[Rfam]
RNA sequence: UUUGGUAUGUGCGACUGGCGUAAACGUGGAUGUAACCACGAGGAAGCACAUAUUUCAUAUGCCGUACGCCUGGGCAAAGUGU
Number, nucleotide and partner (000 for none) at each position: 001u000002u000003u000004g054005g053006u052007a051008u050009g049010u048011g047012c046013g000014a000015c043016u042017g070018g069019c068020g067021u066022a000023a000024a000025c000026g039027u038028g037029g036030a000031u000032g000033u000034a000035a000036c029037c028038a027039c026040g000041a000042g016043g015044a000045a000046g012047c011048a010049c009050a008051u007052a006053u005054u004055u000056c000057a000058u000059a000060u076061g075062c074063c073064g000065u000066a021067c020068g019069c018070c017071u000072g000073g063074g062075c061076a060077a000078a000079g000080u000081g000082u000

Record summary:
Rfam assigns this 82-nucleotide RNA from Paenibacillus cellulosilyticus to the family "ZMP/ZTP riboswitch aptamer (pfl RNA motif)". The base pairs follow the family's consensus structure, which is taken from published work.